[Rfam]
About this RNA: Rfam assigns this 140-nucleotide RNA from Photobacterium lipolyticum to the family "Group II catalytic intron D1-D4-7". Rfam's curators write: Group II introns are found in rRNA, tRNA and mRNA of organelles in fungi, plants and protists, and also in mRNA in bacteria. Lineage of the source: Bacteria > Pseudomonadota > Gammaproteobacteria > Vibrionales > Photobacterium. For this family Rfam cites "Control of branch-site choice by a group II intron" (Chu et al., EMBO J, 2001). Rfam 15.1 lists 1,296 matches to the family in 705 species. It scores 74 bits against the family's covariance model. Its family is annotated with Group II intron splicing in the Gene Ontology.

RNA sequence: CCAUCUGUAUCACCAGAUGAACCUAGGAGCCUGAAUAAAGUAGCGGCUCUGACAAUGUAACGAAGAUUGGUCACAGACCAAUCGGGAUCUAAAUCGUGAGAGGUUGAUUCUCCUGACAACCACAUAAGUCGGGUGAGUGC
Numbered sequence: 001c002c003a004u005c006u007g008u009a010u011c012a013c014c015a016g017a018u019g020a021a022c023c024u025a026g027g028a029g030c031c032u033g034a035a036u037a038a039a040g041u042a043g044c045g046g047c048u049c050u051g052a053c054a055a056u057g058u059a060a061c062g063a064a065g066a067u068u069g070g071u072c073a074c075a076g077a078c079c080a081a082u083c084g085g086g087a088u089c090u091a092a093a094u095c096g097u098g099a100g101a102g103g104u105u106g107a108u109u110c111u112c113c114u115g116a117c118a119a120c121c122a123c124a125u126a127a128g129u130c131g132g133g134u135g136a137g138u139g140c
Stems, first nucleotide, its partner, number of pairs: 002019006027049005032040001065083007085110004094101002112133006